c-di-AMP riboswitch aptamer (ydaO/yuaA leader): a 179-nucleotide RNA sequence from Ruania alkalisoli.
The organism belongs to Ruania, within Bacteria.
A search with the family's covariance model found it, with a score of 65 bits.

RNA sequence: CUCGGACAGACGCCUAACCCUGUCACUGUCUGGGGUCACGACAUACCCGUGACAGGGGCGGGGGACCCACUUCCCGGUGCACCUGCACCUCGGGGUGAAGUCCACCGGAAGACCGGCGGACCGGGUGUAACUCCCACCCGAACCCGACAGCUCACCUCGUAGGCAGCAGGAGAGGCAAG
Numbered sequence: 001c002u003c004g005g006a007c008a009g010a011c012g013c014c015u016a017a018c019c020c021u022g023u024c025a026c027u028g029u030c031u032g033g034g035g036u037c038a039c040g041a042c043a044u045a046c047c048c049g050u051g052a053c054a055g056g057g058g059c060g061g062g063g064g065a066c067c068c069a070c071u072u073c074c075c076g077g078u079g080c081a082c083c084u085g086c087a088c089c090u091c092g093g094g095g096u097g098a099a100g101u102c103c104a105c106c107g108g109a110a111g112a113c114c115g116g117c118g119g120a121c122c123g124g125g126u127g128u129a130a131c132u133c134c135c136a137c138c139c140g141a142a143c144c145c146g147a148c149a150g151c152u153c154a155c156c157u158c159g160u161a162g163g164c165a166g167c168a169g170g171a172g173a174g175g176c177a178a179g
Stems, first nucleotide, its partner, number of pairs: 012164003018057009058160006068092001093145003101120003123139004